The record is a 71-nucleotide RNA sequence from Hucho hucho, which matches "Small nucleolar RNA SNORD75" in Rfam. The family's RNA type in Rfam is C/D-box small nucleolar RNA. Gene Ontology terms of the family: nucleolus and RNA processing. Lineage of the source: Eukaryota > Eumetazoa > Neopterygii > Protacanthopterygii > Hucho. For this family Rfam cites "Purified box C/D snoRNPs are able to reproduce site-specific 2'-O-methylation of target RNA in vitro" (Galardi et al., Mol Cell Biol, 2002).

RNA sequence: AGCCUGUGAUGAAUAUUUGAAUAAGAGUAGUGGACAGAAGUGAUUUCUGACUCAUUUUCAAACUGAUGGCU
Numbered sequence: 001a002g003c004c005u006g007u008g009a010u011g012a013a014u015a016u017u018u019g020a021a022u023a024a025g026a027g028u029a030g031u032g033g034a035c036a037g038a039a040g041u042g043a044u045u046u047c048u049g050a051c052u053c054a055u056u057u058u059c060a061a062a063c064u065g066a067u068g069g070c071u
Base pairs, nucleotide, nucleotide: 001071002070003069004068